A member of the RNA family "chrB-b RNA", 48 nucleotides long. It is one of the family's seed sequences.

[Rfam]
RNA sequence: CCGGGCAAAAUGGGCGCCCGGUCAGACGAGGUUUCGUCCAAGUCCCGC
Numbered sequence: 001c002c003g004g005g006c007a008a009a010a011u012g013g014g015c016g017c018c019c020g021g022u023c024a025g026a027c028g029a030g031g032u033u034u035c036g037u038c039c040a041a042g043u044c045c046c047g048c
Stems, first nucleotide, its partner, number of pairs: 001021006011047004025038005